[Rfam]
RNA sequence: GCCGAUGUAGCUCAGUGGUAGAGCAUUCGAUUCGUAAUCGAACGGUCGUGAGUUCAAAUCUCAUCAUCGGCU
Numbered sequence: 001g002c003c004g005a006u007g008u009a010g011c012u013c014a015g016u017g018g019u020a021g022a023g024c025a026u027u028c029g030a031u032u033c034g035u036a037a038u039c040g041a042a043c044g045g046u047c048g049u050g051a052g053u054u055c056a057a058a059u060c061u062c063a064u065c066a067u068c069g070g071c072u
Base pairs, nucleotide, nucleotide: 001071002070003069004068005067006066007065010024011023012022013021026042027041028040029039030038048064049063050062051061052060
RNA: tRNA
Organism: Leptolyngbya sp. 'hensonii'